[Rfam]
RNA sequence: UCCAUACCCAUGUGUGUGGGACUCCAAAGGAUCACCAUUAAAUUUGGCACAGAUCUCUAGAAAAGUUAUCACAUGAGUAUGAGACUCGUCUUUUUUAGAGAUCUGUGUUAAAUUUAAUGGUGCUCCUUUGGGGUCCUACACACAUGGGUGUGAA
Numbered sequence: 001u002c003c004a005u006a007c008c009c010a011u012g013u014g015u016g017u018g019g020g021a022c023u024c025c026a027a028a029g030g031a032u033c034a035c036c037a038u039u040a041a042a043u044u045u046g047g048c049a050c051a052g053a054u055c056u057c058u059a060g061a062a063a064a065g066u067u068a069u070c071a072c073a074u075g076a077g078u079a080u081g082a083g084a085c086u087c088g089u090c091u092u093u094u095u096u097a098g099a100g101a102u103c104u105g106u107g108u109u110a111a112a113u114u115u116a117a118u119g120g121u122g123c124u125c126c127u128u129u130g131g132g133g134u135c136c137u138a139c140a141c142a143c144a145u146g147g148g149u150g151u152g153a154a
Base pairs, nucleotide, nucleotide: 003152004151005150006149007148008147009146010145011144012143013142015140016139017138018137019136020135021134022133023132024131025130026129027128028127030125031124034121035120036119037118038117039116040115041114042113043112044111045110046109047108048107049106050105051104052103053102054101055100056099057098058097059096060095061094062093063092064091065090067088069082070081071080073078
Shown here is a 154-nucleotide RNA from Amborella trichopoda, a member of the family "MIR8565 microRNA precursor family".